This 70-nucleotide sequence from Hemibagrus wyckioides belongs to the Rfam family "miR-430 microRNA precursor family". The family's consensus secondary structure was predicted with RNAalifold. The literature on the family includes a 2005 paper in Science by Giraldez et al., "MicroRNAs regulate brain morphogenesis in zebrafish". A search with the family's covariance model found it, with a score of 54 bits. Rfam links the family to the GO terms RISC complex and miRNA-mediated post-transcriptional gene silencing.
RNA sequence: AUUGAUUCCCUAACAAUGGCCCUGACCUGUCUGAAUUAUUUGGUAAGUGCUAUUUGUUGGGGUAGUUUUC
Numbered sequence: 001a002u003u004g005a006u007u008c009c010c011u012a013a014c015a016a017u018g019g020c021c022c023u024g025a026c027c028u029g030u031c032u033g034a035a036u037u038a039u040u041u042g043g044u045a046a047g048u049g050c051u052a053u054u055u056g057u058u059g060g061g062g063u064a065g066u067u068u069u070c
Base pairs, nucleotide, nucleotide: 004066006064008062009061010060011059013057014056015055016054018051019050020049022047023046025044026043027042